[Rfam]
RNA sequence: ACACGGAAAGGAGGUGAUCCGAGAAAUGAACUCUUCUUGGACCUGUGAGGUGGUCGGCCGCUGAGGCCGGAUCCCCAACGGACCGGUGAGGCAAUACCAGCCGAACCACCCGAAACCGCGGGCGCUGCCCUGGUCCUGCAGCACGUCGGAACCCCGACCGCCCGCGGUUUCGCCACAC
Numbered sequence: 001a002c003a004c005g006g007a008a009a010g011g012a013g014g015u016g017a018u019c020c021g022a023g024a025a026a027u028g029a030a031c032u033c034u035u036c037u038u039g040g041a042c043c044u045g046u047g048a049g050g051u052g053g054u055c056g057g058c059c060g061c062u063g064a065g066g067c068c069g070g071a072u073c074c075c076c077a078a079c080g081g082a083c084c085g086g087u088g089a090g091g092c093a094a095u096a097c098c099a100g101c102c103g104a105a106c107c108a109c110c111c112g113a114a115a116c117c118g119c120g121g122g123c124g125c126u127g128c129c130c131u132g133g134u135c136c137u138g139c140a141g142c143a144c145g146u147c148g149g150a151a152c153c154c155c156g157a158c159c160g161c162c163c164g165c166g167g168u169u170u171c172g173c174c175a176c177a178c
Stems, first nucleotide, its partner, number of pairs: 013058001015056004060092003065087001067086004111172013124142005